[Rfam]
This 178-nucleotide RNA from Sporosarcina sp. P19 belongs to the Rfam family "Lysine riboswitch aptamer".
RNA sequence: AAUAAGGAUAGAGGCGCAAAAACCAUUAGUACACAAUCGGAGAAUCAUGAGGUUCUGUGAAGAUUGUGGAAAGGGGAAUUUGCCGAAGCGGCGAGAUGCUCAUGAUCUCUAAGCUGAUCCUGGACUGAACAAGUGCAGGAUUGUCAUAUAGGAGACUAUAUGGUGGGCUAUCUCGUGC
Numbered sequence: 001a002a003u004a005a006g007g008a009u010a011g012a013g014g015c016g017c018a019a020a021a022a023c024c025a026u027u028a029g030u031a032c033a034c035a036a037u038c039g040g041a042g043a044a045u046c047a048u049g050a051g052g053u054u055c056u057g058u059g060a061a062g063a064u065u066g067u068g069g070a071a072a073g074g075g076g077a078a079u080u081u082g083c084c085g086a087a088g089c090g091g092c093g094a095g096a097u098g099c100u101c102a103u104g105a106u107c108u109c110u111a112a113g114c115u116g117a118u119c120c121u122g123g124a125c126u127g128a129a130c131a132a133g134u135g136c137a138g139g140a141u142u143g144u145c146a147u148a149u150a151g152g153a154g155a156c157u158a159u160a161u162g163g164u165g166g167g168c169u170a171u172c173u174c175g176u177g178c
Stems, first nucleotide, its partner, number of pairs: 006173006016083005023076002032068007087115003093109005116142007124134003144163007